RNA: Streptomyces RNA 3202
Organism: Streptomyces griseoaurantiacus
RNA sequence: CCACGUCCCGACGCACUACCCCCCCCGGGCGCCGGGACCUUCCCAGAGCCGGGCUUCGGCGUCUCCCCCCGACGCCGGAGCCCGGCUCCUUU
Numbered sequence: 001c002c003a004c005g006u007c008c009c010g011a012c013g014c015a016c017u018a019c020c021c022c023c024c025c026c027g028g029g030c031g032c033c034g035g036g037a038c039c040u041u042c043c044c045a046g047a048g049c050c051g052g053g054c055u056u057c058g059g060c061g062u063c064u065c066c067c068c069c070c071g072a073c074g075c076c077g078g079a080g081c082c083c084g085g086c087u088c089c090u091u092u
Base pairs, nucleotide, nucleotide: 005038006037007036008035009034010033012031013030014029046088047087048086049085050084051083052082053081054080055079057077058076059075060074061073062072063071